[Rfam]
Rfam assigns this 64-nucleotide sequence from Gadus morhua to the family "mir-155 microRNA precursor family". The organism belongs to Gadus, within Eukaryota. The base pairs follow the family's consensus structure, which was predicted with RNAalifold.

RNA sequence: GGGUUAAUGCUAAUCGUGAUAGGGGUUGUUCUCUCCAAGACGCCUAGCAUGCUAGCAUUAUCCU
Numbered sequence: 001g002g003g004u005u006a007a008u009g010c011u012a013a014u015c016g017u018g019a020u021a022g023g024g025g026u027u028g029u030u031c032u033c034u035c036c037a038a039g040a041c042g043c044c045u046a047g048c049a050u051g052c053u054a055g056c057a058u059u060a061u062c063c064u
Stems, first nucleotide, its partner, number of pairs: 005060008014051001020046004025041003